[Rfam]
Annotation: Rfam assigns this 138-nucleotide sequence from Streptosporangium sandarakinum to the family "c-di-AMP riboswitch aptamer (ydaO/yuaA leader)".

RNA sequence: ACGUCGAAUCCCGAAGCCACCAGGGCCACGGGAACCGGGGACCCACCCUUCCGGGGUGAAUCCGCCGCGCACGCGGUGGUAGGGCACUCCACCGCCCGAACCCGUCAGCUAACCCGGUAGACGAGAUGGAGAGGAGAU
Numbered sequence: 001a002c003g004u005c006g007a008a009u010c011c012c013g014a015a016g017c018c019a020c021c022a023g024g025g026c027c028a029c030g031g032g033a034a035c036c037g038g039g040g041a042c043c044c045a046c047c048c049u050u051c052c053g054g055g056g057u058g059a060a061u062c063c064g065c066c067g068c069g070c071a072c073g074c075g076g077u078g079g080u081a082g083g084g085c086a087c088u089c090c091a092c093c094g095c096c097c098g099a100a101c102c103c104g105u106c107a108g109c110u111a112a113c114c115c116g117g118u119a120g121a122c123g124a125g126a127u128g129g130a131g132a133g134g135a136g137a138u
Stems, first nucleotide, its partner, number of pairs: 002123004009033005034118006044053001054103003062079004082097004

The source organism's lineage runs through Bacteria, Actinomycetota, Actinomycetes, Streptosporangiales and Streptosporangium. Its family is annotated with regulation of gene expression and cyclic-di-AMP binding in the Gene Ontology.